Shown here is a 91-nucleotide sequence from Paenibacillus sp. N3.4, a member of the family "c-di-GMP-I-GGC riboswitch aptamer".
[Rfam]
RNA sequence: ACCGAUAAAGGCAAAUCUAGCGAAAGCUAGAGACGCAAAGCUAAAGGACCUUCCUUAGUAUCUAUACUAAGAUGGUAGCCAGUUACCGAAA
Numbered sequence: 001a002c003c004g005a006u007a008a009a010g011g012c013a014a015a016u017c018u019a020g021c022g023a024a025a026g027c028u029a030g031a032g033a034c035g036c037a038a039a040g041c042u043a044a045a046g047g048a049c050c051u052u053c054c055u056u057a058g059u060a061u062c063u064a065u066a067c068u069a070a071g072a073u074g075g076u077a078g079c080c081a082g083u084u085a086c087c088g089a090a091a
Stems, first nucleotide, its partner, number of pairs: 003088002011036002016031006034078001039084004046080002048076003

For this family Rfam cites "Structural and biochemical determinants of ligand binding by the c-di-GMP riboswitch " (Smith et al., Biochemistry, 2010). The family is grouped with related families in Rfam's "c-di-GMP_I riboswitch clan".